[Rfam]
This 88-nucleotide RNA from Reticulomyxa filosa belongs to the Rfam family "Selenocysteine transfer RNA". The organism belongs to Reticulomyxa, within Eukaryota.

RNA sequence: GCGUGGAUGAGCUUCAUUGGUAUGGUGUGCGGAUUUCAAAUCCGUAGGGGAUGGAAUAUGCCCAGUGGUUCGAUUCCACCUUCCACGC
Numbered sequence: 001g002c003g004u005g006g007a008u009g010a011g012c013u014u015c016a017u018u019g020g021u022a023u024g025g026u027g028u029g030c031g032g033a034u035u036u037c038a039a040a041u042c043c044g045u046a047g048g049g050g051a052u053g054g055a056a057u058a059u060g061c062c063c064a065g066u067g068g069u070u071c072g073a074u075u076c077c078a079c080c081u082u083c084c085a086c087g088c
Base pairs, nucleotide, nucleotide: 001088002087003086004085005084006083007082009080012027014025015024016023017022028046029045030044031043032042033041048063049062050061065079066078067077068076